Rfam assigns this 213-nucleotide RNA from Nonomuraea phyllanthi to the family "Actinobacteria sRNA Ms_IGR-5". The pairing is the family consensus, mapped onto this sequence.
[Rfam]
RNA sequence: ACGCGGAAAGGAGGUGGUCCAAACAAUGGUGAAUCAUAGUUGGGCUAGCGAGGUGGUUGUCCGCUAGCGUCCGCGGACUGUUGUCUCGUGACGUACGCGAAUACGAGGCAACCACCGGGGCCCCCGGCAGCCGGAGGGCGGGAUCCUGAUCCCGACCAUGGUCCAUCCGGCCCGCCUGCUCGGCAGGCGGAGUUGGCCUGGGGCCCUUCUUCA
Numbered sequence: 001a002c003g004c005g006g007a008a009a010g011g012a013g014g015u016g017g018u019c020c021a022a023a024c025a026a027u028g029g030u031g032a033a034u035c036a037u038a039g040u041u042g043g044g045c046u047a048g049c050g051a052g053g054u055g056g057u058u059g060u061c062c063g064c065u066a067g068c069g070u071c072c073g074c075g076g077a078c079u080g081u082u083g084u085c086u087c088g089u090g091a092c093g094u095a096c097g098c099g100a101a102u103a104c105g106a107g108g109c110a111a112c113c114a115c116c117g118g119g120g121c122c123c124c125c126g127g128c129a130g131c132c133g134g135a136g137g138g139c140g141g142g143a144u145c146c147u148g149a150u151c152c153c154g155a156c157c158a159u160g161g162u163c164c165a166u167c168c169g170g171c172c173c174g175c176c177u178g179c180u181c182g183g184c185a186g187g188c189g190g191a192g193u194u195g196g197c198c199u200g201g202g203g204c205c206c207u208u209c210u211u212c213a
Stems, first nucleotide, its partner, number of pairs: 013061006062099003067094002070091002075086003117207008126198003132189001
The match comes from Rfam's covariance-model search (49 bits).
On this family, see Li et al., RNA 2013: "Identification of small RNAs in Mycobacterium smegmatis using heterologous Hfq".